[Rfam]
RNA sequence: AUAGAAAACGAUUGCUGUAAUACAGAGGAAAGUCCAGGCUUCCACAAGCUGCGAUGCUUGUAGUGUUUGUACGUAACGAAUAAAUAAGUUACGGUAGCGUGAGCUAACGACAAGCCUAAGACCUAAACAAUUUUAUUGCAUGGUUGAUAAGCUAUAAAGUGCCACAGAAACAAUUCUAGUUGAAAAACUAGCUGAAAAGAGGUAAACUCUGCAAGGAAGAAACCCAAAUUUGGUAGGGGAAUCGUCUUGAGGGAAAUGAACUAAAAGACGGAUGCUUAAAGCAUAGAUAAAUAAUCGUUUGAAAAACAGAACUUGGCUUAC
Dot-bracket structure: ......(((((((.((((...))))....[[[.[[[[[(((((((((((......)))))).....(((((((((((..........))))))(((((....)))).)((..(((....((((....((.......))...)))).....))).....(((((............((((((....)))))).........)))..))))))))))))))...(((..........)))...(((((((................)))))))(((((...)))))........)))))))............]]]]]]]]..
Shown here is a 321-nucleotide sequence from Erysipelatoclostridium sp. An173, a member of the family "Bacterial RNase P class B". For this family Rfam cites "Ribonuclease P: unity and diversity in a tRNA processing ribozyme" (Frank and Pace, Annu Rev Biochem, 1998). The source organism's lineage runs through Bacteria, Bacillati, Bacillota, Erysipelotrichales and Thomasclavelia. The family's consensus secondary structure is taken from published work. It scores 236 bits against the family's covariance model.